Shown here is a 92-nucleotide RNA from Oligella urethralis, a member of the family "Selenocysteine transfer RNA". The base pairs follow the family's consensus structure, which is taken from published work. Its Rfam clan is "tRNA clan".
RNA sequence: GGAAGGUAUGCGUAACCGGUGUUGCGGCUGGGCUUCAAAUCCAGUUGGGGAUGUCAGACAUUCCCAGGUAGGUUCGACUCCUGCUACCUUCC
Numbered sequence: 001g002g003a004a005g006g007u008a009u010g011c012g013u014a015a016c017c018g019g020u021g022u023u024g025c026g027g028c029u030g031g032g033c034u035u036c037a038a039a040u041c042c043a044g045u046u047g048g049g050g051a052u053g054u055c056a057g058a059c060a061u062u063c064c065c066a067g068g069u070a071g072g073u074u075c076g077a078c079u080c081c082u083g084c085u086a087c088c089u090u091c092c
Stems, first nucleotide, its partner, number of pairs: 001092008011026006027045006047065005069083004